Shown here is a 133-nucleotide RNA from Eptatretus burgeri, a member of the family "U4atac minor spliceosomal RNA". It scores 91 bits against the family's covariance model. The family's RNA type in Rfam is spliceosomal small nuclear RNA. Its Rfam clan is "U4 clan". Its family is annotated with pre-mRNA 5'-splice site binding, mRNA 5'-splice site recognition and spliceosomal tri-snRNP complex assembly in the Gene Ontology. U4atac is an essential component of the minor U12-type spliceosome complex which is required for removal of the rarer class of eukaryotic introns (AT-AC, U12-type).

RNA sequence: ACCGUCCUUGUCUUGGGGAAGCAAUGCUGGCCUGUGAUCGUGUAGUGAGGCCGGUUAUGCUAACACCUAAAACAACACUGACUCGCGUCGCUUAAGUCUUGGUUGCUUAAGUUUGGGCGCAAUUUUUGGAUCC
Numbered sequence: 001a002c003c004g005u006c007c008u009u010g011u012c013u014u015g016g017g018g019a020a021g022c023a024a025u026g027c028u029g030g031c032c033u034g035u036g037a038u039c040g041u042g043u044a045g046u047g048a049g050g051c052c053g054g055u056u057a058u059g060c061u062a063a064c065a066c067c068u069a070a071a072a073c074a075a076c077a078c079u080g081a082c083u084c085g086c087g088u089c090g091c092u093u094a095a096g097u098c099u100u101g102g103u104u105g106c107u108u109a110a111g112u113u114u115g116g117g118c119g120c121a122a123u124u125u126u127u128g129g130a131u132c133c
Stems, first nucleotide, its partner, number of pairs: 005019005021060003026055007039045001085120005091111006